[Rfam]
RNA sequence: UGGAGAGGUAGAGGCGCGGUCUGUCAAGAGUACCUGGAGGAGUCCGACGGUGGACGAUGAUACCGGAGGGAAAGGGGCAACCGCCGAAGCUUGGAGCAACCGUAUUGCUCACAGGCUGGGUCCGGGCAUAAGAUGUUCGGAACUGCCAUCUGGUGAUUCGACCGGAUGGAGCGCUAUCCAAUCG
Numbered sequence: 001u002g003g004a005g006a007g008g009u010a011g012a013g014g015c016g017c018g019g020u021c022u023g024u025c026a027a028g029a030g031u032a033c034c035u036g037g038a039g040g041a042g043u044c045c046g047a048c049g050g051u052g053g054a055c056g057a058u059g060a061u062a063c064c065g066g067a068g069g070g071a072a073a074g075g076g077g078c079a080a081c082c083g084c085c086g087a088a089g090c091u092u093g094g095a096g097c098a099a100c101c102g103u104a105u106u107g108c109u110c111a112c113a114g115g116c117u118g119g120g121u122c123c124g125g126g127c128a129u130a131a132g133a134u135g136u137u138c139g140g141a142a143c144u145g146c147c148a149u150c151u152g153g154u155g156a157u158u159c160g161a162c163c164g165g166a167u168g169g170a171g172c173g174c175u176a177u178c179c180a181a182u183c184g
Base pairs, nucleotide, nucleotide: 007178008177009176010175011174016084017083018082019081020080022079023078024077025076033069034068035065036064037063039061088117089116090115091114092113093112094110095109096108097107098106118144119143121141122140123139124138125137126136127135128134146169147168148167149166150165151164152163

The record is a 184-nucleotide RNA from Heliomicrobium modesticaldum, which matches "Lysine riboswitch aptamer" in Rfam. Pairs were carried over by alignment from the consensus structure, which is taken from published work.